[Rfam]
The family of this 108-nucleotide RNA sequence from Sapajus apella is "Y RNA". The literature on the family includes a 2000 paper in Nucleic Acids Res by Teunissen et al., "Conserved features of Y RNAs: a comparison of experimentally derived secondary structures". The source organism's lineage runs through Eukaryota, Teleostomi, Amniota, Cebinae and Sapajus.
RNA sequence: GGCUGGUCUGAAGGUAGUAAGUUAGCUAAAUUGAUUGUCACAGUCAGUCAUAGAUCAAGCUCCUUGUUCUUUCCUUCUUCUCACUACUAUACUUGACUCUAGUCUUAA
Number, nucleotide and partner (000 for none) at each position: 001g104002g103003c102004u101005g100006g097007u096008c095009u000010g094011a093012a000013g000014g090015u089016a085017g084018u083019a000020a081021g080022u000023u000024a000025g000026c000027u000028a000029a000030a000031u000032u000033g000034a000035u000036u000037g000038u000039c000040a000041c000042a068043g067044u066045c000046a064047g063048u000049c000050a000051u000052a000053g000054a000055u000056c000057a000058a000059g000060c000061u000062c000063c047064u046065u000066g044067u043068u042069c000070u000071u000072u000073c000074c000075u000076u000077c000078u000079u000080c021081u020082c000083a018084c017085u016086a000087c000088u000089a015090u014091a000092c000093u011094u010095g008096a007097c006098u000099c000100u005101a004102g003103u002104c001105u000106u000107a000108a000